Record summary:
MIR6274 microRNA precursor family: a 105-nucleotide RNA from Prunus persica.

[Rfam]
RNA sequence: GGAUAUUACGAUUUUGCUAUUUUCGGCCAAUAACACAAUGAUACGUGAAAAAGUUAUUUUACGUAUCAUUGUGUUAUUAGUCGAAAUAGCAAAACAGUGUUAUCC
Dot-bracket structure: .((((......(((((((((.((((((.((((((((((((((((((((((......)))))))))))))))))))))).)))))))))))))))......)))).
Pairs were carried over by alignment from the consensus structure, which was predicted with RNAalifold. It scores 96 bits against the family's covariance model.